[Rfam]
RNA: L31-Actinobacteria ribosomal protein leader
Organism: Mycobacterium sp. UM_Kg1
RNA sequence: CAGGUUCCGGUUCACGUCCGCCCCAAGGCGGGCGACCCGGCGGCC
Numbered sequence: 001c002a003g004g005u006u007c008c009g010g011u012u013c014a015c016g017u018c019c020g021c022c023c024c025a026a027g028g029c030g031g032g033c034g035a036c037c038c039g040g041c042g043g044c045c
Base pairs, nucleotide, nucleotide: 003045004044005043007040008039009038010037015034016033017032018031019030020029021028022027